c-di-GMP-I riboswitch aptamer: an 86-nucleotide RNA sequence from Pontibacillus marinus. Lineage of the source: Bacteria > Bacillati > Bacilli > Pontibacillus > Pontibacillus marinus. GEMM was predicted in a large-scale screen for bacterial structured RNA regulatory elements.

RNA sequence: UAAUGAAAAGGGCAAACUUGUCGAAAGGCAAGGACGCAAAGCCACGGGUCUAAAGUAUCGUUUUACUAAGACAGCCGGUUGCCGUA
Numbered sequence: 001u002a003a004u005g006a007a008a009a010g011g012g013c014a015a016a017c018u019u020g021u022c023g024a025a026a027g028g029c030a031a032g033g034a035c036g037c038a039a040a041g042c043c044a045c046g047g048g049u050c051u052a053a054a055g056u057a058u059c060g061u062u063u064u065a066c067u068a069a070g071a072c073a074g075c076c077g078g079u080u081g082c083c084g085u086a
Base pairs, nucleotide, nucleotide: 012037013036017032018031019030020029021028022027040080041079042078043077046076047075048072049071050070055066056065057064